A member of the RNA family "small nucleolar RNA snoR143" from Arabis alpina, 170 nucleotides long.
The source organism's lineage runs through Eukaryota, Streptophytina, Pentapetalae, malvids and Arabis.
It is annotated as an H/ACA-box small nucleolar RNA.
Rfam links the family to the GO terms nucleolus and RNA processing.
For this family Rfam cites "Mining small RNA sequencing data: a new approach to identify small nucleolar RNAs in Arabidopsis" (Chen and Wu, Nucleic Acids Res, 2009).

RNA sequence: UUGCACCUUGUAUUAGAAGGUCAUGCUUCGUUCUGGUGGCAUGACUAUUUUCGAGGAUGCGGAAAGGAAUAGCUGUUAAAUCAGUAAGCGGCCAGACAACCGUUGGGAUAGAUCCACAGGUGAGAGCGGUUUCUUUCUUCGCUCUUAGCUACUAAAUCUAUCCCACAUUU
Numbered sequence: 001u002u003g004c005a006c007c008u009u010g011u012a013u014u015a016g017a018a019g020g021u022c023a024u025g026c027u028u029c030g031u032u033c034u035g036g037u038g039g040c041a042u043g044a045c046u047a048u049u050u051u052c053g054a055g056g057a058u059g060c061g062g063a064a065a066g067g068a069a070u071a072g073c074u075g076u077u078a079a080a081u082c083a084g085u086a087a088g089c090g091g092c093c094a095g096a097c098a099a100c101c102g103u104u105g106g107g108a109u110a111g112a113u114c115c116a117c118a119g120g121u122g123a124g125a126g127c128g129g130u131u132u133c134u135u136u137c138u139u140c141g142c143u144c145u146u147a148g149c150u151a152c153u154a155a156a157u158c159u160a161u162c163c164c165a166c167a168u169u170u
Stems, first nucleotide, its partner, number of pairs: 002061004009053002015050003019046009105164008122146007